[Rfam]
RNA sequence: UCUAGAACUCGAGAUAUGGGUUGAACACUGAACAAUGUCUAGCCUGCAGGAUAGAUUCAGACUUCUUUGUUGUUCCUACAAUUUGGACUUCAAAAUAGCCUUUUUAAAUCUUGGGCUCCCAUGAAAGUUAUAAGCUUGUGUCUUACCUUUCCAUC
Numbered sequence: 001u002c003u004a005g006a007a008c009u010c011g012a013g014a015u016a017u018g019g020g021u022u023g024a025a026c027a028c029u030g031a032a033c034a035a036u037g038u039c040u041a042g043c044c045u046g047c048a049g050g051a052u053a054g055a056u057u058c059a060g061a062c063u064u065c066u067u068u069g070u071u072g073u074u075c076c077u078a079c080a081a082u083u084u085g086g087a088c089u090u091c092a093a094a095a096u097a098g099c100c101u102u103u104u105u106a107a108a109u110c111u112u113g114g115g116c117u118c119c120c121a122u123g124a125a126a127g128u129u130a131u132a133a134g135c136u137u138g139u140g141u142c143u144u145a146c147c148u149u150u151c152c153a154u155c
Stems, first nucleotide, its partner, number of pairs: 003153001005151003009145001011144010021133003025129001027128003035122003042118001045115001048112005054105002060099001062098002068092002072088003

About this RNA: MIR2912 microRNA precursor family: a 155-nucleotide sequence from Populus tomentosa. Pairs were carried over by alignment from the consensus structure, which was predicted with RNAalifold. It scores 116 bits against the family's covariance model.